[Rfam]
RNA sequence: UUGCCAUACUUCACCUCUCAAGCAGGUGUUGUUGUGGAAGUGCCGGCCGGUUGCCGCCGGCCGGUGCGCUU
Numbered sequence: 001u002u003g004c005c006a007u008a009c010u011u012c013a014c015c016u017c018u019c020a021a022g023c024a025g026g027u028g029u030u031g032u033u034g035u036g037g038a039a040g041u042g043c044c045g046g047c048c049g050g051u052u053g054c055c056g057c058c059g060g061c062c063g064g065u066g067c068g069c070u071u
Stems, first nucleotide, its partner, number of pairs: 004037003009031001012028005040067012
The family of this 71-nucleotide RNA from Burkholderia pseudomallei is "Plasmid transferred anti-sense RNA". Gene Ontology terms of the family: negative regulation of translation and mRNA binding. The family's RNA type in Rfam is antitoxin RNA.